[Rfam]
RNA sequence: GGGGAUGUAGCUCAGUGGUAGAGCAUUCGACUGCAGAUCGAAAUGUCCCGGUUCAAUCCCGGUCCCCCUG
Numbered sequence: 001g002g003g004g005a006u007g008u009a010g011c012u013c014a015g016u017g018g019u020a021g022a023g024c025a026u027u028c029g030a031c032u033g034c035a036g037a038u039c040g041a042a043a044u045g046u047c048c049c050g051g052u053u054c055a056a057u058c059c060c061g062g063u064c065c066c067c068c069u070g
Stems, first nucleotide, its partner, number of pairs: 001069004007063001010024004026042005048062004